[Rfam]
Overview: This 48-nucleotide RNA sequence from Cryomorpha ignava belongs to the Rfam family "Acido-Lenti-1 RNA". By type it is a small RNA. Lineage of the source: Bacteria > Pseudomonadati > Bacteroidota > Flavobacteriia > Cryomorpha.

RNA sequence: CCCCGGAUUGAAAUCCGGGGCUAAAAUAAAUGUCGUGCCUCUGGCACU
Numbered sequence: 001c002c003c004c005g006g007a008u009u010g011a012a013a014u015c016c017g018g019g020g021c022u023a024a025a026a027u028a029a030a031u032g033u034c035g036u037g038c039c040u041c042u043g044g045c046a047c048u
Stems, first nucleotide, its partner, number of pairs: 001020008035047005